[Rfam]
RNA sequence: GCCCAGAAUAGCCUGAUCAGCGAACACCGGGGACCCUGCCCGGUCUUCUGGGCAUUAACCAAACGGG
Numbered sequence: 001g002c003c004c005a006g007a008a009u010a011g012c013c014u015g016a017u018c019a020g021c022g023a024a025c026a027c028c029g030g031g032g033a034c035c036c037u038g039c040c041c042g043g044u045c046u047u048c049u050g051g052g053c054a055u056u057a058a059c060c061a062a063a064c065g066g067g
Stems, first nucleotide, its partner, number of pairs: 001053008011021002027043005034067003
RNA: int-alpA RNA